[Rfam]
RNA sequence: GGAGUUAGCGAUGAUUAUAUAAAAAUUCUUUACUUUGAUUUGCUUAAUUUGAAUCUGAUAAACUUUUUAUUACAACCAUAGAAUCUGAGCUCU
Numbered sequence: 001g002g003a004g005u006u007a008g009c010g011a012u013g014a015u016u017a018u019a020u021a022a023a024a025a026u027u028c029u030u031u032a033c034u035u036u037g038a039u040u041u042g043c044u045u046a047a048u049u050u051g052a053a054u055c056u057g058a059u060a061a062a063c064u065u066u067u068u069a070u071u072a073c074a075a076c077c078a079u080a081g082a083a084u085c086u087g088a089g090c091u092c093u
Base pairs, nucleotide, nucleotide: 003093004092007091008090
This 93-nucleotide sequence from Theobroma cacao belongs to the Rfam family "Small nucleolar RNA snoR8a". The base pairs follow the family's consensus structure, which was predicted with WAR. By type it is a C/D-box small nucleolar RNA. The literature on the family includes a 2001 paper in RNA by Brown et al., "Multiple snoRNA gene clusters from Arabidopsis".